A member of the RNA family "mir-365 microRNA precursor family" from Anolis carolinensis, 79 nucleotides long. The base pairs follow the family's consensus structure, which was predicted with RNAalifold. A reference for the family is Xie et al. (2005), "Systematic discovery of regulatory motifs in human promoters and 3' UTRs by comparison of several mammals", Nature. Rfam 15.1 lists 1,300 matches to the family in 640 species. Taxonomically the source falls in Anolis (Eukaryota, Dipnotetrapodomorpha, Sauria, Anolidae).
RNA sequence: AAGAAAAAUGAGGGACUUUCAGGGGCAGCUGUGUUUUACUAACCCAGUCAUAAUGCCCCUAAAAAUCCUUAUUGUUCUU
Numbered sequence: 001a002a003g004a005a006a007a008a009u010g011a012g013g014g015a016c017u018u019u020c021a022g023g024g025g026c027a028g029c030u031g032u033g034u035u036u037u038a039c040u041a042a043c044c045c046a047g048u049c050a051u052a053a054u055g056c057c058c059c060u061a062a063a064a065a066u067c068c069u070u071a072u073u074g075u076u077c078u079u
Base pairs, nucleotide, nucleotide: 011070012069013068014067015066017064018063019062021060022059023058024057025056026055027054030052031051032050033049
Notes: Rfam links the family to the GO terms miRNA-mediated post-transcriptional gene silencing and RISC complex.